[Rfam]
RNA sequence: CCUGAGUCCGGCCUGCCAGGUUCCGGGUUCCUCCGCGAAGGUCUCCGCGCCGACGAACUGGCCGUCGGCCAGGACGUCGAGGACGACGGGGUCGCCGUACUUGCCCUGCCCGACCCGGUCGGCCUUGCCGUGUGCGAUGACGUGCACACCGUCCUGGGCGCGUCCGGCCUCCACGAUGGUCUCGCCGGGCUCGAAGCCGCGCUGCUCGAACCGGGAAGCCAACGCCUCCAGCACGGAGUCGUCCCCGAAGCCCCGGAGAGCGGGGAGUUCGUGCAGUUCGGCCGGCACCACACUCACAUCAGCACCGGUGUUCACACACGUCACACGACCAUCGCCGAUCGUGCAGACCAGGCGGCGGUUCACCCGGUAGGUGCCACCGCGCGUCUCGGCCCACGGCAGCAUCCGCAACAGCCACCGCGGCGUGAUCCCCUGCAUCUGCGGGGCGGACUUGGUCGUCGUGGCCAGGUUCCGGGCCGCCGGUGUCCCCAGGCUGAGCGGGGAGGGCGG
Numbered sequence: 001c002c003u004g005a006g007u008c009c010g011g012c013c014u015g016c017c018a019g020g021u022u023c024c025g026g027g028u029u030c031c032u033c034c035g036c037g038a039a040g041g042u043c044u045c046c047g048c049g050c051c052g053a054c055g056a057a058c059u060g061g062c063c064g065u066c067g068g069c070c071a072g073g074a075c076g077u078c079g080a081g082g083a084c085g086a087c088g089g090g091g092u093c094g095c096c097g098u099a100c101u102u103g104c105c106c107u108g109c110c111c112g113a114c115c116c117g118g119u120c121g122g123c124c125u126u127g128c129c130g131u132g133u134g135c136g137a138u139g140a141c142g143u144g145c146a147c148a149c150c151g152u153c154c155u156g157g158g159c160g161c162g163u164c165c166g167g168c169c170u171c172c173a174c175g176a177u178g179g180u181c182u183c184g185c186c187g188g189g190c191u192c193g194a195a196g197c198c199g200c201g202c203u204g205c206u207c208g209a210a211c212c213g214g215g216a217a218g219c220c221a222a223c224g225c226c227u228c229c230a231g232c233a234c235g236g237a238g239u240c241g242u243c244c245c246c247g248a249a250g251c252c253c254c255g256g257a258g259a260g261c262g263g264g265g266a267g268u269u270c271g272u273g274c275a276g277u278u279c280g281g282c283c284g285g286c287a288c289c290a291c292a293c294u295c296a297c298a299u300c301a302g303c304a305c306c307g308g309u310g311u312u313c314a315c316a317c318a319c320g321u322c323a324c325a326c327g328a329c330c331a332u333c334g335c336c337g338a339u340c341g342u343g344c345a346g347a348c349c350a351g352g353c354g355g356c357g358g359u360u361c362a363c364c365c366g367g368u369a370g371g372u373g374c375c376a377c378c379g380c381g382c383g384u385c386u387c388g389g390c391c392c393a394c395g396g397c398a399g400c401a402u403c404c405g406c407a408a409c410a411g412c413c414a415c416c417g418c419g420g421c422g423u424g425a426u427c428c429c430c431u432g433c434a435u436c437u438g439c440g441g442g443g444c445g446g447a448c449u450u451g452g453u454c455g456u457c458g459u460g461g462c463c464a465g466g467u468u469c470c471g472g473g474c475c476g477c478c479g480g481u482g483u484c485c486c487c488a489g490g491c492u493g494a495g496c497g498g499g500g501a502g503g504g505c506g507g
Base pairs, nucleotide, nucleotide: 006391008389009388010387011386014383015382016381019326021323024320025319027317028316037313038312039311041309042308043307047305049303050302052300053299055234058231059230060229061228064225065224066112067111068110076104078103079102080101081100083098084097085096087094118223119222121220123218128213130211131210132207134205135204136203139200141199142198144197145196150193151192162190163189164188165187166186167185168184169179170178235297238294241291242290246285250283252281254280255279257278258277260272261271262270330343331342332341352380353379354378355377357375358374361373362372363371364370392432393431395429396428398426400424401423402422404419405418406417438477439476440475441474444471445470446469447468448466449465450464451463452462453461478506479505481504483502485500486499487498489496
Dot-bracket structure: .....(.((((..(((..(.(..((.((........(((.(((...(.((.((.(..((((..(((((.......(.((((.(((.(......).))).))))).....))).....((.(.(....(.(((.(((..(.((.((....((..........(((((((((.......))....))))))).))..)))))..))).)..)).)....).).))))..))))..)(..(..((...(...(.(.((.((.(((.......)))....))))).).)....))..)..).)).)).).))).)))..)).))..)..)...(((........)))........((((.((..((((.....)))))).)))))))..)))).)((.((.(.(((.(((..........)))..))).).)).)).....((((..((((((((((.......)))))).))))..))))((.(.(.(((.(......).))).).))).